A member of the RNA family "Small nucleolar RNA snoR99" from Brassica cretica, 104 nucleotides long. The match comes from Rfam's covariance-model search (79 bits). Gene Ontology terms of the family: nucleolus and RNA processing. Rfam classes the family as an H/ACA-box small nucleolar RNA. The source organism's lineage runs through Eukaryota, Streptophyta, Gunneridae, malvids and Brassica. Rfam 15.1 lists 733 matches to the family in 222 species.
RNA sequence: UAGCUAAUAGGAUUGAACAAAGUCCCACACAUGUUAAUCCAUUUGUUUCACUUUGUCAGCAGUCUCAAUUGGUUUCUUGCCCAUCAUUUCAUGAUGGGAUAUAU
Numbered sequence: 001u002a003g004c005u006a007a008u009a010g011g012a013u014u015g016a017a018c019a020a021a022g023u024c025c026c027a028c029a030c031a032u033g034u035u036a037a038u039c040c041a042u043u044u045g046u047u048u049c050a051c052u053u054u055g056u057c058a059g060c061a062g063u064c065u066c067a068a069u070u071g072g073u074u075u076c077u078u079g080c081c082c083a084u085c086a087u088u089u090c091a092u093g094a095u096g097g098g099a100u101a102u103a104u
Stems, first nucleotide, its partner, number of pairs: 038098006055084002059080004
Dot-bracket structure: .....................................((((((...........((..((((..............))))..))........))))))......